[Rfam]
RNA: Group I catalytic intron
Organism: Bacillus phage Belinda
RNA sequence: UCAGCUGGUCCUAGACCGUAAAUUGGGACCAGAAUAAUCAACUCCGUGAAUUGCUGGGAACCCCUAACGUAAAGACGAGGGCAAUCAGCAGCCAAGGCUCACAGGAAUGUGUGUAAGGUUCAACGACUAGGGUAUGGAGUCCAGAACGGACGGUAAAACCCCACGAGCGCGGAGCAAUAAAAUAGUGUGGCGCAAAAUUUUAUUGAAGAUAUAGUCUGACCUUAUAGGAAACUAUAAG
Numbered sequence: 001u002c003a004g005c006u007g008g009u010c011c012u013a014g015a016c017c018g019u020a021a022a023u024u025g026g027g028a029c030c031a032g033a034a035u036a037a038u039c040a041a042c043u044c045c046g047u048g049a050a051u052u053g054c055u056g057g058g059a060a061c062c063c064c065u066a067a068c069g070u071a072a073a074g075a076c077g078a079g080g081g082c083a084a085u086c087a088g089c090a091g092c093c094a095a096g097g098c099u100c101a102c103a104g105g106a107a108u109g110u111g112u113g114u115a116a117g118g119u120u121c122a123a124c125g126a127c128u129a130g131g132g133u134a135u136g137g138a139g140u141c142c143a144g145a146a147c148g149g150a151c152g153g154u155a156a157a158a159c160c161c162c163a164c165g166a167g168c169g170c171g172g173a174g175c176a177a178u179a180a181a182a183u184a185g186u187g188u189g190g191c192g193c194a195a196a197a198u199u200u201u202a203u204u205g206a207a208g209a210u211a212u213a214g215u216c217u218g219a220c221c222u223u224a225u226a227g228g229a230a231a232c233u234a235u236a237a238g
Base pairs, nucleotide, nucleotide: 005032006031007030008029009028010027011026012025013024042174043173044172045171047169048168052090053089054088055087056086057085061081062080063079065077091119092118096114123217125216126215127214128213129212177203178202179201180200181199182198183197223236224235225234226233227232